RNA sequence: UUUUGAGUGGUGAUGAACAAUUAUGUUUUGGACUAGAGUUUCUGUCUUUCUGAUACUGCUACUUUGUGGUAGUCCUUGAAUGCCAAACCCUUGGCCGUCUGAACUCAAAU
Numbered sequence: 001u002u003u004u005g006a007g008u009g010g011u012g013a014u015g016a017a018c019a020a021u022u023a024u025g026u027u028u029u030g031g032a033c034u035a036g037a038g039u040u041u042c043u044g045u046c047u048u049u050c051u052g053a054u055a056c057u058g059c060u061a062c063u064u065u066g067u068g069g070u071a072g073u074c075c076u077u078g079a080a081u082g083c084c085a086a087a088c089c090c091u092u093g094g095c096c097g098u099c100u101g102a103a104c105u106c107a108a109a110u
Stems, first nucleotide, its partner, number of pairs: 002109007040080003054071006
This 110-nucleotide RNA sequence from Digitaria exilis belongs to the Rfam family "Small nucleolar RNA Z157/R69/R10".
NCBI's taxonomy places the organism under Eukaryota, Magnoliopsida, Mesangiospermae, Liliopsida, Digitaria.
Rfam links the family to the GO terms nucleolus and RNA processing.
Rfam classes the family as a C/D-box small nucleolar RNA.
Pairs were carried over by alignment from the consensus structure, which was predicted with PFOLD.